[Rfam]
The record is a 108-nucleotide sequence from Companilactobacillus allii, which matches "Ribosomal protein L20 leader" in Rfam. Rfam links the family to the GO term regulation of gene expression. By type it is a cis-regulatory leader. From the family's description: This family is a putative r-protein leader autoregulatory structure found in B. subtilis and other low-GC Gram-positive bacteria. It is located in the 5' untranslated regions of mRNAs encoding initiation factor 3 followed by ribosomal proteins L35 and L20 (infC-rpmI-rplT). A Rho-independent transcription terminator structure that is probably involved in regulation is included at the 3' end. The literature on the family includes a 1994 paper in Prog Nucleic Acid Res Mol Biol by Zengel and Lindahl, "Diverse mechanisms for regulating ribosomal protein synthesis in Escherichia coli".
RNA sequence: GAGAUUAAGCAGAAGCGCCCGCUUCUCACCUAAGCUAUAUGCCUCUAGGUUAAUACGAUUAUGUAGAUAAUAGUGGGCGUGCGUAUGCGCCCACUUUUUUAGUGGGAU
Numbered sequence: 001g002a003g004a005u006u007a008a009g010c011a012g013a014a015g016c017g018c019c020c021g022c023u024u025c026u027c028a029c030c031u032a033a034g035c036u037a038u039a040u041g042c043c044u045c046u047a048g049g050u051u052a053a054u055a056c057g058a059u060u061a062u063g064u065a066g067a068u069a070a071u072a073g074u075g076g077g078c079g080u081g082c083g084u085a086u087g088c089g090c091c092c093a094c095u096u097u098u099u100u101a102g103u104g105g106g107a108u
Stems, first nucleotide, its partner, number of pairs: 011026006028050003033044001034042002072095010
Dot-bracket structure: ..........((((((....)))))).(((..(((.....)).)...))).....................((((((((((....)))))))))).............